[Rfam]
RNA sequence: CUAUCCUCUUGAGUUCCCCUGAUCACUUCACUGGGGAUAUGGGGUCUACUCUUCUCAGAGCCAUGUUAAAGGGGAGGUCCCUGAUGACCUACUGAAGUGUUUGGGGGAACUCUGGCUGGCAC
Numbered sequence: 001c002u003a004u005c006c007u008c009u010u011g012a013g014u015u016c017c018c019c020u021g022a023u024c025a026c027u028u029c030a031c032u033g034g035g036g037a038u039a040u041g042g043g044g045u046c047u048a049c050u051c052u053u054c055u056c057a058g059a060g061c062c063a064u065g066u067u068a069a070a071g072g073g074g075a076g077g078u079c080c081c082u083g084a085u086g087a088c089c090u091a092c093u094g095a096a097g098u099g100u101u102u103g104g105g106g107g108a109a110c111u112c113u114g115g116c117u118g119g120c121a122c
Stems, first nucleotide, its partner, number of pairs: 005118001008115002011112010022102001024099007032091004